Rfam assigns this 78-nucleotide RNA sequence from Neodrepanis coruscans to the family "mir-92 microRNA precursor family". Rfam's curators write: This family represents the microRNA precursor mir-92. Its family is annotated with miRNA-mediated post-transcriptional gene silencing and RISC complex in the Gene Ontology. The family is grouped with related families in Rfam's "mir-92 microRNA precursor clan".
RNA sequence: CUUUCUGCACAGGUUGGGAUCAGUUGUAAUGCCGUGUGUGUCUGUGGUAUUUGGCUUAUUCCGACCUGUUGAGAUUGG
Numbered sequence: 001c002u003u004u005c006u007g008c009a010c011a012g013g014u015u016g017g018g019a020u021c022a023g024u025u026g027u028a029a030u031g032c033c034g035u036g037u038g039u040g041u042c043u044g045u046g047g048u049a050u051u052u053g054g055c056u057u058a059u060u061c062c063g064a065c066c067u068g069u070u071g072a073g074a075u076u077g078g
Stems, first nucleotide, its partner, number of pairs: 004074003009069006016062005022056003028051007